[Rfam]
RNA: manA RNA
RNA sequence: UGUUGGACGCAACAUGGGAGUGACUGAAUAAACUUACUGGCAACUGCUGGUUAAGGUGAUGAGACACAGGUGGUGCUGCUUCGAGAGAAGAACCGACUCAACCAGUCGGGUCUCAGGCAAUAACGUUUUUACUACUGUAGUAAUGCCCGUUAUUUGUUGGUACACAGGAAUCCAACCUCCCUCUUU
Number, nucleotide and partner (000 for none) at each position: 001u014002g013003u012004u011005g010006g000007a000008c000009g000010c005011a004012a003013c002014a001015u000016g181017g180018g179019a178020g177021u000022g000023a057024c056025u000026g000027a000028a000029u000030a000031a000032a000033c000034u000035u000036a051037c050038u049039g048040g047041c046042a000043a000044c000045u000046g041047c040048u039049g038050g037051u036052u000053a000054a000055g000056g024057u023058g000059a000060u115061g114062a113063g112064a111065c110066a000067c078068a077069g076070g000071u104072g103073g102074u101075g000076c069077u068078g067079c090080u089081u088082c087083g000084a000085g000086a000087g082088a081089a080090g079091a000092a000093c109094c108095g107096a106097c105098u000099c000100a000101a074102c073103c072104a071105g097106u096107c095108g094109g093110g065111u064112c063113u062114c061115a060116g000117g000118c000119a154120a153121u152122a151123a150124c149125g148126u000127u000128u000129u143130u142131a141132c140133u000134a000135c167136u166137g165138u164139a000140g132141u131142a130143a129144u000145g000146c000147c000148c125149g124150u123151u122152a121153u120154u119155u000156g176157u175158u174159g173160g172161u000162a000163c000164a138165c137166a136167g135168g000169a000170a000171u000172c160173c159174a158175a157176c156177c020178u019179c018180c017181c016182u000183c000184u000185u000186u000